[Rfam]
RNA sequence: AGCGCGGACCGGGCCCCUCUGACGUUUGCGCUAUGCGCGAUCGUGAUGUCGGACCGCUUAA
Numbered sequence: 001a002g003c004g005c006g007g008a009c010c011g012g013g014c015c016c017c018u019c020u021g022a023c024g025u026u027u028g029c030g031c032u033a034u035g036c037g038c039g040a041u042c043g044u045g046a047u048g049u050c051g052g053a054c055c056g057c058u059u060a061a
Base pairs, nucleotide, nucleotide: 006055007054009052010051011050012049022044023043024042026040027039028038029037
Background: The record is a 61-nucleotide RNA from Mesorhizobium hungaricum, which matches "terC RNA" in Rfam. By type it is a cis-regulatory element. Taxonomically the source falls in Mesorhizobium (Bacteria, Pseudomonadota, Alphaproteobacteria, Phyllobacteriaceae).